[Rfam]
RNA sequence: UCUGGCAUAAUGAUGAGACUUUUGCCGUUUACCCAUCUGAAUGUUUUUUGGUGAGUAUCUUGAGAUCUGAAAUGCCAGU
Numbered sequence: 001u002c003u004g005g006c007a008u009a010a011u012g013a014u015g016a017g018a019c020u021u022u023u024g025c026c027g028u029u030u031a032c033c034c035a036u037c038u039g040a041a042u043g044u045u046u047u048u049u050g051g052u053g054a055g056u057a058u059c060u061u062g063a064g065a066u067c068u069g070a071a072a073u074g075c076c077a078g079u
Stems, first nucleotide, its partner, number of pairs: 002078006
A member of the RNA family "Small nucleolar RNA SNORD87" from Prunella fulvescens, 79 nucleotides long. Pairs were carried over by alignment from the consensus structure. The organism belongs to Prunella, within Eukaryota.